A member of the RNA family "Group II catalytic intron D1-D4-3" from Halolactibacillus alkaliphilus, 174 nucleotides long.
RNA sequence: UCUUCUGUGAGGGAGAAUCUAAAGGAAGCUGGACGCAAACACUUGCACUGACAAACAGAAACUUCAUAUGAAGGCUCGGUGGAAUGGAUAAACUUACGUAACAAAGUGAAGUCCAAUACUCAUCGAAAUUCCAUCGAGUAUAUAAAGCAGUGACGUGAAUCGAAAGUGACUACC
Numbered sequence: 001u002c003u004u005c006u007g008u009g010a011g012g013g014a015g016a017a018u019c020u021a022a023a024g025g026a027a028g029c030u031g032g033a034c035g036c037a038a039a040c041a042c043u044u045g046c047a048c049u050g051a052c053a054a055a056c057a058g059a060a061a062c063u064u065c066a067u068a069u070g071a072a073g074g075c076u077c078g079g080u081g082g083a084a085u086g087g088a089u090a091a092a093c094u095u096a097c098g099u100a101a102c103a104a105a106g107u108g109a110a111g112u113c114c115a116a117u118a119c120u121c122a123u124c125g126a127a128a129u130u131c132c133a134u135c136g137a138g139u140a141u142a143u144a145a146a147g148c149a150g151u152g153a154c155g156u157g158a159a160u161c162g163a164a165a166g167u168g169a170c171u172a173c174c
Base pairs, nucleotide, nucleotide: 001016002015003014004013005012006011028174030172031171032170035167036166041160043158044157045156046152047151048150049149050148062147063146064145066143067142074139075138076137078135079134080133081132082131083130084129086114087113088112089111092107093106094105095104